[Rfam]
RNA sequence: AACAGAGUAGGAAACGAUGCGUAAAGUGCUAGUGGGAUGGGAUGUUGCUCACUGGACGAAAAGUGCUAAUGGAGUACUUGCGACAUGGUUUCUGCAUUCGCUGCA
Numbered sequence: 001a002a003c004a005g006a007g008u009a010g011g012a013a014a015c016g017a018u019g020c021g022u023a024a025a026g027u028g029c030u031a032g033u034g035g036g037a038u039g040g041g042a043u044g045u046u047g048c049u050c051a052c053u054g055g056a057c058g059a060a061a062a063g064u065g066c067u068a069a070u071g072g073a074g075u076a077c078u079u080g081c082g083a084c085a086u087g088g089u090u091u092c093u094g095c096a097u098u099c100g101c102u103g104c105a
Stems, first nucleotide, its partner, number of pairs: 003103003010093006017086003020082003026057002029055008040099005061079007
Dot-bracket structure: ..(((....((((((.((((((...((.((((((((...[[[[[...))))))))))...(((((((.....)))))))))).))).)))))).]]]]].)))..